A member of the RNA family "abiF RNA" from Muribaculaceae bacterium Isolate-037, 37 nucleotides long. The base pairs follow the family's consensus structure, which is taken from published work. Rfam 15.1 lists 282 matches to the family in 274 species. Rfam describes the family as follows. Actinobacteria, Bacteroidetes, Clostridia, Proteobacteria, one Clostridia phage. It scores 39 bits against the family's covariance model. It is annotated as a small RNA.
RNA sequence: CCUGCCAAGCCUACUAACAGUGCUUAAAUCGGCAGGU
Number, nucleotide and partner (000 for none) at each position: 001c036002c035003u034004g033005c032006c031007a000008a024009g023010c022011c000012u000013a000014c000015u000016a000017a000018c000019a000020g000021u000022g010023c009024u008025u000026a000027a000028a000029u000030c000031g006032g005033c004034a003035g002036g001037u000